[Rfam]
The family of this 88-nucleotide RNA from Pectobacterium carotovorum is "TrxA 5' UTR thermometer". About the family: Involved in protection against oxidative stress. The base pairs follow the family's consensus structure. It is annotated as an RNA thermoregulator. Rfam's curators put it in the seed alignment.
RNA sequence: AAGCCGUUGUUGGUCAAUGCUACACCAACAAGGUAGAAAUAAUCCUGCGGAGUAAAAUAUGAGCGAUAAAAUAAUUCACCUGACUGAU
Numbered sequence: 001a002a003g004c005c006g007u008u009g010u011u012g013g014u015c016a017a018u019g020c021u022a023c024a025c026c027a028a029c030a031a032g033g034u035a036g037a038a039a040u041a042a043u044c045c046u047g048c049g050g051a052g053u054a055a056a057a058u059a060u061g062a063g064c065g066a067u068a069a070a071a072u073a074a075u076u077c078a079c080c081u082g083a084c085u086g087a088u
Stems, first nucleotide, its partner, number of pairs: 008068005014062003021054003025050002031046003072087001074085001076083002